A member of the RNA family "Group II catalytic intron D1-D4-3", 172 nucleotides long.
RNA sequence: UCCAUCGUGAGUUGGAAUCUGAAGGAAGCCGGCGACAAAUAUCUGACCUAACGGACAGAAACUUCAUAUAAGGCAUGUGACCGUGGAUAAGAUUGCCUAACAAAUCAAAGUCCAAUAGCUAUUCGGAACGGUCGGUGUAAAUGAAGUAGGCAUAAGAUGGAAAGACAAUGCC
Numbered sequence: 001u002c003c004a005u006c007g008u009g010a011g012u013u014g015g016a017a018u019c020u021g022a023a024g025g026a027a028g029c030c031g032g033c034g035a036c037a038a039a040u041a042u043c044u045g046a047c048c049u050a051a052c053g054g055a056c057a058g059a060a061a062c063u064u065c066a067u068a069u070a071a072g073g074c075a076u077g078u079g080a081c082c083g084u085g086g087a088u089a090a091g092a093u094u095g096c097c098u099a100a101c102a103a104a105u106c107a108a109a110g111u112c113c114a115a116u117a118g119c120u121a122u123u124c125g126g127a128a129c130g131g132u133c134g135g136u137g138u139a140a141a142u143g144a145a146g147u148a149g150g151c152a153u154a155a156g157a158u159g160g161a162a163a164g165a166c167a168a169u170g171c172c
Stems, first nucleotide, its partner, number of pairs: 001016004006011001028172001030170002036164001040159005047150004062146006073138003078134007085113004091106004
Notes
The pairing is the family consensus, mapped onto this sequence. Rfam describes the family as follows. Group II introns are found in rRNA, tRNA and mRNA of organelles in fungi, plants and protists, and also in mRNA in bacteria.